Rfam assigns this 74-nucleotide RNA sequence from Strongylocentrotus purpuratus to the family "Mammalian CPEB3 ribozyme". The family has 14 seed sequences and 5,706 matches in Rfam 15.1. The organism belongs to Strongylocentrotus, within Eukaryota.

[Rfam]
RNA sequence: UACGUCAAUGAAAGAGCCAAUGAAGGAGCGUUCACGUUGCGGUCCCUGUCAGAUGAAAAUCUGUGAAUCCUUCA
Numbered sequence: 001u002a003c004g005u006c007a008a009u010g011a012a013a014g015a016g017c018c019a020a021u022g023a024a025g026g027a028g029c030g031u032u033c034a035c036g037u038u039g040c041g042g043u044c045c046c047u048g049u050c051a052g053a054u055g056a057a058a059a060u061c062u063g064u065g066a067a068u069c070c071u072u073c074a
Base pairs, nucleotide, nucleotide: 014045016043017042018041021074022073023072024071025070026069027068028040029039030038050063051062052061053060054059